A member of the RNA family "Proteo-phage-1 RNA" from Magnetospirillum sp. UT-4, 99 nucleotides long.
RNA sequence: CCCCAGCCGGCGGGGCCGCGCUGGUUCAGGCGCAGCGCGGAUAUGCCGGCCGCGGCUUUAGUCGGCGAGUGGCCGCGUGGUGAACCAACCCCGACAGCC
Numbered sequence: 001c002c003c004c005a006g007c008c009g010g011c012g013g014g015g016c017c018g019c020g021c022u023g024g025u026u027c028a029g030g031c032g033c034a035g036c037g038c039g040g041a042u043a044u045g046c047c048g049g050c051c052g053c054g055g056c057u058u059u060a061g062u063c064g065g066c067g068a069g070u071g072g073c074c075g076c077g078u079g080g081u082g083a084a085c086c087a088a089c090c091c092c093g094a095c096a097g098c099c
Stems, first nucleotide, its partner, number of pairs: 001015004007049005017040001051077004056072001061095005
The match comes from Rfam's covariance-model search (56 bits).